[Rfam]
RNA sequence: GAGGGCGGAACGAAAAACACGGCCCGGUUGGUAGUCCGGGCGCGGUCCGGGGGAGCGUCCCGCCCCCGGGACCGUCAGUAACCUGCCUCCUUGGUUGUCCGCGCUCCGCGCAAGACCU
Numbered sequence: 001g002a003g004g005g006c007g008g009a010a011c012g013a014a015a016a017a018c019a020c021g022g023c024c025c026g027g028u029u030g031g032u033a034g035u036c037c038g039g040g041c042g043c044g045g046u047c048c049g050g051g052g053g054a055g056c057g058u059c060c061c062g063c064c065c066c067c068g069g070g071a072c073c074g075u076c077a078g079u080a081a082c083c084u085g086c087c088u089c090c091u092u093g094g095u096u097g098u099c100c101g102c103g104c105u106c107c108g109c110g111c112a113a114g115a116c117c118u
Stems, first nucleotide, its partner, number of pairs: 005109005011103001022041006042075006085095003
Dot-bracket structure: ....(((((.(..........((((((........))))))((((((......................)))))).........(((.....))).......).))))).........

This 118-nucleotide RNA sequence from Flavonifractor plautii belongs to the Rfam family "azaaromatic riboswitch aptamer (yjdF RNA)". Lineage of the source: Bacteria > Bacillati > Eubacteriales > Oscillospiraceae > Flavonifractor plautii. The family's consensus secondary structure is taken from published work.